[Rfam]
RNA sequence: UAUUUGCUGUGAUGACUUCUAUUAGGACGGUAUAUGAAGGUGGUGACUUUUAAGUGCACCUCUUCUGAUUAUACCAAAACUGAAUAUGGGUUUCUGAGCAAAUC
Numbered sequence: 001u002a003u004u005u006g007c008u009g010u011g012a013u014g015a016c017u018u019c020u021a022u023u024a025g026g027a028c029g030g031u032a033u034a035u036g037a038a039g040g041u042g043g044u045g046a047c048u049u050u051u052a053a054g055u056g057c058a059c060c061u062c063u064u065c066u067g068a069u070u071a072u073a074c075c076a077a078a079a080c081u082g083a084a085u086a087u088g089g090g091u092u093u094c095u096g097a098g099c100a101a102a103u104c
Stems, first nucleotide, its partner, number of pairs: 002103006038064003042060002